[Rfam]
RNA: MDR-NUDIX RNA
RNA sequence: ACUAUGAACCUACUUGGUUCCUCUACGCGCAUAUGUCCGAAUGAUUCGAACCACUGGCGC
Dot-bracket structure: .....(((((.....)))))......((((....((.(((.....))).)).....))))